[Rfam]
RNA sequence: CUGUAUUCUACAGUGCAUGUGUCUCCAGUGUGUUAUAUGUUACUGGAGAUGCAGCCCUGUUGGAAUAAC
Dot-bracket structure: .....((((((((.((.((((((((((((............)))))))))))))).)))).))))....
RNA: mir-139 microRNA precursor family